RNA sequence: GGGGCCGACUGGUUUCGACAUGGUAUGUCUGCACUGAGGAGCAGGUCGUGGUCUCCUCGCCACGUUAAACAGGGGUACUGCCUUGUAAUUGGCAAAAACAACUUCAAGGCUGUGAGCUAUGCUCCGGCCGCCAUGGCUGCUUAAUUUCAGCCAUCCGUCAACCUCAGGUAUUUCCCCGCCCUGGGCGCGACGUCAUUUCAGGGGAACGCUCUCUGGCGAGUUUUCGGUGCAGCCAGGGCUAAGACCAACCGAAUAGGGCGCGUCCCGUCCGUCGACGAACUGUGGCGCGUCCGAAUCCCGAUCGCCGACUAAGCUUGUAGAGCCUCAGGAACGAUAUAGUAUGGACCGGAGUUCGAUUCUCCGCGGCUCCACCA
Numbered sequence: 001g002g003g004g005c006c007g008a009c010u011g012g013u014u015u016c017g018a019c020a021u022g023g024u025a026u027g028u029c030u031g032c033a034c035u036g037a038g039g040a041g042c043a044g045g046u047c048g049u050g051g052u053c054u055c056c057u058c059g060c061c062a063c064g065u066u067a068a069a070c071a072g073g074g075g076u077a078c079u080g081c082c083u084u085g086u087a088a089u090u091g092g093c094a095a096a097a098a099c100a101a102c103u104u105c106a107a108g109g110c111u112g113u114g115a116g117c118u119a120u121g122c123u124c125c126g127g128c129c130g131c132c133a134u135g136g137c138u139g140c141u142u143a144a145u146u147u148c149a150g151c152c153a154u155c156c157g158u159c160a161a162c163c164u165c166a167g168g169u170a171u172u173u174c175c176c177c178g179c180c181c182u183g184g185g186c187g188c189g190a191c192g193u194c195a196u197u198u199c200a201g202g203g204g205a206a207c208g209c210u211c212u213c214u215g216g217c218g219a220g221u222u223u224u225c226g227g228u229g230c231a232g233c234c235a236g237g238g239c240u241a242a243g244a245c246c247a248a249c250c251g252a253a254u255a256g257g258g259c260g261c262g263u264c265c266c267g268u269c270c271g272u273c274g275a276c277g278a279a280c281u282g283u284g285g286c287g288c289g290u291c292c293g294a295a296u297c298c299c300g301a302u303c304g305c306c307g308a309c310u311a312a313g314c315u316u317g318u319a320g321a322g323c324c325u326c327a328g329g330a331a332c333g334a335u336a337u338a339g340u341a342u343g344g345a346c347c348g349g350a351g352u353u354c355g356a357u358u359c360u361c362c363g364c365g366g367c368u369c370c371a372c373c374a
Stems, first nucleotide, its partner, number of pairs: 001370007019343004024338006034328006042317005047064005052077001054075004133154007156192004163184002167180003172205005211238007220254004256292009267280002271309004276304002347363005